The family of this 134-nucleotide RNA from Acinonyx jubatus is "Small nucleolar RNA SNORA27". Gene Ontology terms of the family: nucleolus and RNA processing. About the family: ACA27 is a member of the H/ACA class of snoRNA that guide the sites of modification of uridines to pseudouridines. It is annotated as an H/ACA-box small nucleolar RNA. Pairs were carried over by alignment from the consensus structure.

RNA sequence: CUAAAAUAUUUUAUAUUUUGAGUUAGAAAAUCCCCCUUCUUCAAAUUAAAAAAAAAAAGUGGGGCAAAGGAAAUAUCCUUUUAAAACUCAAGCAUACUGGGUGUUUGCCUUGUAUCCUGUCAGAGGAAACAAAU
Numbered sequence: 001c002u003a004a005a006a007u008a009u010u011u012u013a014u015a016u017u018u019u020g021a022g023u024u025a026g027a028a029a030a031u032c033c034c035c036c037u038u039c040u041u042c043a044a045a046u047u048a049a050a051a052a053a054a055a056a057a058a059g060u061g062g063g064g065c066a067a068a069g070g071a072a073a074u075a076u077c078c079u080u081u082u083a084a085a086a087c088u089c090a091a092g093c094a095u096a097c098u099g100g101g102u103g104u105u106u107g108c109c110u111u112g113u114a115u116c117c118u119g120u121c122a123g124a125g126g127a128a129a130c131a132a133a134u
Base pairs, nucleotide, nucleotide: 014066016064017063018062023057076127077126078125079124080123081122089112090110092108093107094106096104097103